Shown here is a 221-nucleotide sequence from Crinalium epipsammum, a member of the family "HNH endonuclease-associated RNA and ORF (HEARO) RNA". A search with the family's covariance model found it, with a score of 156 bits. The base pairs follow the family's consensus structure, which is taken from published work. NCBI's taxonomy places the organism under Bacteria, Cyanophyceae, Gomontiellales, Gomontiellaceae, Crinalium epipsammum.

[Rfam]
RNA sequence: GUCAGGAACCUCAGCCUAAAGGCAUGAGGCUUGAAAGAGAAAUCUAAUAAGCCAUCCUGACCAGCCUAAGUCAAAACUUGACUACGUUUUUUGAGUCACGACACCUUGGGAUGCGAAGCUAGUCCCCUGCUCUGUCGCUAGUAGUUAAACCAACUUUAAGGUCACUGAAGUAGUGCUGCUAGCCUAACAAGCUCAGAAAACCUUGGCGAAGCUAACUUUAC
Numbered sequence: 001g002u003c004a005g006g007a008a009c010c011u012c013a014g015c016c017u018a019a020a021g022g023c024a025u026g027a028g029g030c031u032u033g034a035a036a037g038a039g040a041a042a043u044c045u046a047a048u049a050a051g052c053c054a055u056c057c058u059g060a061c062c063a064g065c066c067u068a069a070g071u072c073a074a075a076a077c078u079u080g081a082c083u084a085c086g087u088u089u090u091u092u093g094a095g096u097c098a099c100g101a102c103a104c105c106u107u108g109g110g111a112u113g114c115g116a117a118g119c120u121a122g123u124c125c126c127c128u129g130c131u132c133u134g135u136c137g138c139u140a141g142u143a144g145u146u147a148a149a150c151c152a153a154c155u156u157u158a159a160g161g162u163c164a165c166u167g168a169a170g171u172a173g174u175g176c177u178g179c180u181a182g183c184c185u186a187a188c189a190a191g192c193u194c195a196g197a198a199a200a201c202c203u204u205g206g207c208g209a210a211g212c213u214a215a216c217u218u219u220a221c
Stems, first nucleotide, its partner, number of pairs: 001061007010029002012026002015022002030051004064207003068203001069083005086201011101135002105129001108126005113217001117213004137183009149174002153171006